[Rfam]
RNA sequence: GGUCACGAUUGUCAGCGCCCGUCGGACGGGGUUCCCCCGUCCGUGCGGUCAUCGGCCCCGGCCCGCUGGCAGGCAACCCUUCCACCGCGACGGGGUGCCCCGGGUGACGACCGGGUUCCGCCGCGGCGGCGGGACAAGCGUGGUCU
Numbered sequence: 001g002g003u004c005a006c007g008a009u010u011g012u013c014a015g016c017g018c019c020c021g022u023c024g025g026a027c028g029g030g031g032u033u034c035c036c037c038c039g040u041c042c043g044u045g046c047g048g049u050c051a052u053c054g055g056c057c058c059c060g061g062c063c064c065g066c067u068g069g070c071a072g073g074c075a076a077c078c079c080u081u082c083c084a085c086c087g088c089g090a091c092g093g094g095g096u097g098c099c100c101c102g103g104g105u106g107a108c109g110a111c112c113g114g115g116u117u118c119c120g121c122c123g124c125g126g127c128g129g130c131g132g133g134a135c136a137a138g139c140g141u142g143g144u145c146u
Stems, first nucleotide, its partner, number of pairs: 001112004009071001011070006072099003077095003081090002115135009
SAM (S-adenosyl methionine) riboswitch aptamer: a 146-nucleotide RNA from Streptomyces apricus. For this family Rfam cites "The aptamer core of SAM-IV riboswitches mimics the ligand-binding site of SAM-I riboswitches" (Weinberg et al., RNA, 2008). NCBI's taxonomy places the organism under Bacteria, Bacillati, Actinomycetota, Actinomycetes, Streptomyces.